[Rfam]
RNA: MIR480 microRNA precursor family
Organism: Populus tomentosa
RNA sequence: UAAUCUGUCCGAGAUAGAUCUUUAUAUAGUUAUGGCAAACUCAUCUAAUUGUUCAAAAUCAUCCAUGAUAAUUAUUAUAUAAACAAUAAUUUUUUAAGAUU
Numbered sequence: 001u002a003a004u005c006u007g008u009c010c011g012a013g014a015u016a017g018a019u020c021u022u023u024a025u026a027u028a029g030u031u032a033u034g035g036c037a038a039a040c041u042c043a044u045c046u047a048a049u050u051g052u053u054c055a056a057a058a059u060c061a062u063c064c065a066u067g068a069u070a071a072u073u074a075u076u077a078u079a080u081a082a083a084c085a086a087u088a089a090u091u092u093u094u095u096a097a098g099a100u101u
Stems, first nucleotide, its partner, number of pairs: 004099003012090001014087002019082001023079003027074005